[Rfam]
RNA sequence: ACAAUAUUGGGACCGUCAGUCCACCGAGCAAUAUCACGCGCUCGGUGGAAGAUCUUCUCUCCGUCGU
Numbered sequence: 001a002c003a004a005u006a007u008u009g010g011g012a013c014c015g016u017c018a019g020u021c022c023a024c025c026g027a028g029c030a031a032u033a034u035c036a037c038g039c040g041c042u043c044g045g046u047g048g049a050a051g052a053u054c055u056u057c058u059c060u061c062c063g064u065c066g067u
Stems, first nucleotide, its partner, number of pairs: 004064002010058003015053003020049010
Shown here is a 67-nucleotide RNA sequence from Bombyx mori, a member of the family "mir-2774 microRNA precursor family".
The family's consensus secondary structure was predicted with RNAalifold.
Lineage of the source: Eukaryota > Ecdysozoa > Mandibulata > Ditrysia > Bombyx.
For this family Rfam cites "MicroRNAs of Bombyx mori identified by Solexa sequencing" (Liu et al., BMC Genomics, 2010).
It scores 76 bits against the family's covariance model.